[Rfam]
SAM/SAH riboswitch aptamer: a 49-nucleotide RNA sequence from Thioclava sp. SK-1. Gene Ontology terms of the family: S-adenosylmethionine metabolic process and regulation of gene expression. A search with the family's covariance model found it, with a score of 59 bits. NCBI's taxonomy places the organism under Bacteria, Pseudomonadota, Alphaproteobacteria, Rhodobacterales, Thioclava. A reference for the family is Weickhmann et al. (2019), "The structure of the SAM/SAH-binding riboswitch", Nucleic Acids Res.
RNA sequence: GAACCGUCACAACGGCUUCCUGACGUGGCGGGGAUACCCAAAUGGAGCA
Number, nucleotide and partner (000 for none) at each position: 001g000002a000003a000004c031005c030006g029007u028008c027009a026010c025011a000012a000013c022014g021015g048016c047017u046018u000019c045020c044021u014022g013023a000024c000025g010026u009027g008028g007029c006030g005031g004032g000033g000034a000035u000036a000037c000038c000039c000040a000041a000042a000043u000044g020045g019046a017047g016048c015049a000